A member of the RNA family "TPP riboswitch aptamer (THI element)" from Pseudomonas pohangensis, 106 nucleotides long. The source organism's lineage runs through Bacteria, Gammaproteobacteria, Pseudomonadales, Pseudomonadaceae and Pseudomonas.
RNA sequence: GUGUUCUUGUCGGGGUGCCUCAUGUCGAGGCUGAGAUCGAAUAGUUUCGGAUCCCGUUGAACCUGAUCAGGUUAAAGCCUGCGUAGGGAACAAGAUUUCUCGCUGU
Dot-bracket structure: .....(((((((((.((((((.....)))))......((((....)))))..)))).....((((..((((......))))..))))..)))))............
It scores 88 bits against the family's covariance model.